[Rfam]
RNA sequence: GAUAGCCAUAGAUGACAAAGGGGUUUAACGUUGGUUCUGUCACCACCCGGACAUCAUGAAUUGUGGUGUCGUAAAUUCCUCCCCAAAACAUGGCUUUUCCUACUAGCAACAAAGCUGCUACGCCUAAAAAUAGUAGGUGGUGUCCUAAAAUUAAGCCGAGUUGUUUGGGGUCGUCCCA
Numbered sequence: 001g002a003u004a005g006c007c008a009u010a011g012a013u014g015a016c017a018a019a020g021g022g023g024u025u026u027a028a029c030g031u032u033g034g035u036u037c038u039g040u041c042a043c044c045a046c047c048c049g050g051a052c053a054u055c056a057u058g059a060a061u062u063g064u065g066g067u068g069u070c071g072u073a074a075a076u077u078c079c080u081c082c083c084c085a086a087a088a089c090a091u092g093g094c095u096u097u098u099c100c101u102a103c104u105a106g107c108a109a110c111a112a113a114g115c116u117g118c119u120a121c122g123c124c125u126a127a128a129a130a131u132a133g134u135a136g137g138u139g140g141u142g143u144c145c146u147a148a149a150a151u152u153a154a155g156c157c158g159a160g161u162u163g164u165u166u167g168g169g170g171u172c173g174u175c176c177c178a
Stems, first nucleotide, its partner, number of pairs: 136175006144169005
The record is a 178-nucleotide RNA sequence from Nostocales cyanobacterium LEGE 11386, which matches "Antisense RNA which regulates isiA expression" in Rfam. A reference for the family is Duhring et al. (2006), "An internal antisense RNA regulates expression of the photosynthesis gene isiA", Proc Natl Acad Sci U S A. Lineage of the source: Bacteria > Bacillati > Cyanobacteriota > Cyanophyceae > Nostocales. It scores 127 bits against the family's covariance model. The base pairs follow the family's consensus structure, which was predicted with PFOLD. The family has 308 seed sequences and 3,397 matches in Rfam 15.1.